RNA sequence: AUCAUCAAAUGAUGAAUUUGGAAAAGAAUCUUAGGACACCUUCCUACAUAGCUUUAAAAGCUAUGGAUGAGAAGAACAUUUCCUUUCUGAUGAUGAU
Number, nucleotide and partner (000 for none) at each position: 001a097002u096003c095004a094005u093006c092007a091008a000009a000010u000011g000012a000013u000014g000015a000016a000017u000018u000019u000020g000021g000022a000023a000024a000025a000026g000027a000028a000029u000030c000031u000032u000033a000034g000035g000036a000037c000038a000039c000040c000041u000042u000043c000044c000045u000046a000047c000048a000049u000050a000051g000052c000053u000054u000055u000056a000057a000058a000059a000060g000061c000062u000063a000064u000065g000066g000067a000068u000069g000070a000071g000072a000073a000074g000075a000076a000077c000078a000079u000080u000081u000082c000083c000084u000085u000086u000087c000088u000089g000090a000091u007092g006093a005094u004095g003096a002097u001
Shown here is a 97-nucleotide sequence from Hibiscus trionum, a member of the family "Small nucleolar RNA snoR31/Z110/Z27". This family contains several related snoRNAs including R31, Z27 and Z110. Its family is annotated with RNA processing and nucleolus in the Gene Ontology. The family's RNA type in Rfam is C/D-box small nucleolar RNA.